[Rfam]
RNA sequence: AAAUCAGAGCGAUAAGUCCACUUUAGGCCGUCCAAGGCGUUUCCCUCCGUAGGUGGGUAUGAGCCUUGGCAGAACAAGCCUAAAGGGCACGCUCUUUUU
Numbered sequence: 001a002a003a004u005c006a007g008a009g010c011g012a013u014a015a016g017u018c019c020a021c022u023u024u025a026g027g028c029c030g031u032c033c034a035a036g037g038c039g040u041u042u043c044c045c046u047c048c049g050u051a052g053g054u055g056g057g058u059a060u061g062a063g064c065c066u067u068g069g070c071a072g073a074a075c076a077a078g079c080c081u082a083a084a085g086g087g088c089a090c091g092c093u094c095u096u097u098u099u
Base pairs, nucleotide, nucleotide: 001099002098003097009092010091024082025081026080027079028078031076032069033068034067035066036065037064038063044057045056046055048053
Source information
The family of this 99-nucleotide RNA sequence is "DUF3800-V RNA". The sequence is in the family's curated seed alignment.